[Rfam]
RNA sequence: UUUACCUAAACGACGUAAGCCCUACCUCUCUUACAUCCUUACGGCUCCGAAGCCGAUCCAGUGUGAAUAGUUUCUAUUAAAACAUA
Numbered sequence: 001u002u003u004a005c006c007u008a009a010a011c012g013a014c015g016u017a018a019g020c021c022c023u024a025c026c027u028c029u030c031u032u033a034c035a036u037c038c039u040u041a042c043g044g045c046u047c048c049g050a051a052g053c054c055g056a057u058c059c060a061g062u063g064u065g066a067a068u069a070g071u072u073u074c075u076a077u078u079a080a081a082a083c084a085u086a
Stems, first nucleotide, its partner, number of pairs: 034065002038061002042055005
RNA: BsrC